[Rfam]
RNA sequence: GUUUAUCUUCAGGGCAGGGUGAAAAUCCCGACCGGCGGUAAAAGUCCGCGACCCUUGUUUAAGGUUGAUUCGGUGCAAUUCCGAAACCGACAGUGAUAGUCUGGAUGGAAGAAGAUAGUA
Numbered sequence: 001g002u003u004u005a006u007c008u009u010c011a012g013g014g015c016a017g018g019g020u021g022a023a024a025a026u027c028c029c030g031a032c033c034g035g036c037g038g039u040a041a042a043a044g045u046c047c048g049c050g051a052c053c054c055u056u057g058u059u060u061a062a063g064g065u066u067g068a069u070u071c072g073g074u075g076c077a078a079u080u081c082c083g084a085a086a087c088c089g090a091c092a093g094u095g096a097u098a099g100u101c102u103g104g105a106u107g108g109a110a111g112a113a114g115a116u117a118g119u120a
Stems, first nucleotide, its partner, number of pairs: 003118008017029003031100002033089002035049004044087002053064002069085005091103003
The family of this 120-nucleotide RNA sequence from Ligilactobacillus agilis is "FMN riboswitch aptamer (RFN element)". The match comes from Rfam's covariance-model search (122 bits). The source organism's lineage runs through Bacteria, Bacillati, Bacillota, Lactobacillaceae and Ligilactobacillus agilis.